Rfam assigns this 127-nucleotide RNA sequence from Striga hermonthica to the family "Small nucleolar RNA snoR111". The organism belongs to Striga, within Eukaryota. It is annotated as an H/ACA-box small nucleolar RNA.
Nucleotides: 127
Stems, first nucleotide, its partner, number of pairs: 008035010064123002067119003072111004082105006089098001
Number, partner (000 for none) and nucleotide at each position: 001000a002000u003000a004000a005000a006000g007000a008035a009034u010033g011032g012031g013030a014029c015028g016027g017026u018000a019000a020000a021000u022000u023000g024000a025000u026017g027016c028015c029014g030013u031012c032011u033010c034009g035008u036000c037000g038000u039000u040000g041000a042000g043000g044000u045000c046000g047000a048000g049000a050000g051000g052000u053000a054000u055000a056000g057000u058000a059000a060000u061000g062000u063000c064123g065122g066000c067119g068118a069117g070000a071000u072111a073110u074109c075108g076000u077000u078000u079000c080000a081000u082105u083104c084103g085102u086101c087100a088000u089098u090000u091000u092000a093000u094000c095000c096000c097000c098089g099000u100087u101086g102085a103084c104083g105082a106000u107000a108075u109074g110073a111072u112000u113000g114000u115000u116000g117069c118068u119067c120000c121000u122065c123064c124000a125000c126000a127000u